[Rfam]
RNA: skipping-rope RNA
RNA sequence: ACUGCGCGAAGUAGAGAAUCUGCCGUCUACGCCCCCUUGCGGGCAAAAGAAAUGUGGAAGUUGGCAGUCCCACCGCGCAGU
Numbered sequence: 001a002c003u004g005c006g007c008g009a010a011g012u013a014g015a016g017a018a019u020c021u022g023c024c025g026u027c028u029a030c031g032c033c034c035c036c037u038u039g040c041g042g043g044c045a046a047a048a049g050a051a052a053u054g055u056g057g058a059a060g061u062u063g064g065c066a067g068u069c070c071c072a073c074c075g076c077g078c079a080g081u
Stems, first nucleotide, its partner, number of pairs: 001081008011030005020067005032049001033043003054073004